[Rfam]
RNA: tRNA
Organism: Mycolicibacterium holsaticum
RNA sequence: GCCCCCAUAGCCCAAUUGGCAGAGGCAGCGGACUUAAAAUCCGUCCAGUGUGGGUUCGAGUCCCACUGGGGGCA
Dot-bracket structure: (((((((..(((...........))).(((((.......))))).....(((((.......)))))))))))).